[Rfam]
This 144-nucleotide sequence from Streptococcus ferus belongs to the Rfam family "MarS sRNA". Interacts with the 5'UTR of the mga transcript (the multiple virulence gene regulator gene) and was renamed MarS for mag-activating regulatory sRNA. In MarS deletion strains expression of mga and several Mga-activated genes is reduced. NCBI's taxonomy places the organism under Bacteria, Bacillati, Bacillota, Bacilli, Streptococcus. It scores 109 bits against the family's covariance model. The literature on the family includes a 2017 paper in Sci Rep by Pappesch et al., "The Regulatory Small RNA MarS Supports Virulence of Streptococcus pyogenes".
RNA sequence: AUGCGAUGAGUCGAUUGUGGCACUGCCACAUUUGCGCUAGGGAUGUCAUUACGCAGGAGCGGACAUUAUUAGGAUGUGUGAACCGUCCUAAUUCAUCUUACUUUUACAAGAUGCCCUUCCCCUUGUUUUAACAAGGGAUUUUUU
Dot-bracket structure: ...........(((.((((((...)))))).)))....((((((((.....(((....))).)))).(((((((...........))))))).((((((........))))))))))..(((((((....))))))).......